[Rfam]
RNA sequence: CGGUGUAGAGGGGUCAGGUGUCAUACUGUGUGACAAUUGCCUAUGCCGCAUGGCGCAUGACCUUUGUUCACAGU
Numbered sequence: 001c002g003g004u005g006u007a008g009a010g011g012g013g014u015c016a017g018g019u020g021u022c023a024u025a026c027u028g029u030g031u032g033a034c035a036a037u038u039g040c041c042u043a044u045g046c047c048g049c050a051u052g053g054c055g056c057a058u059g060a061c062c063u064u065u066g067u068u069c070a071c072a073g074u
Stems, first nucleotide, its partner, number of pairs: 003071003007067001009065008018056004023051002026048001
RNA: mir-1421 microRNA precursor family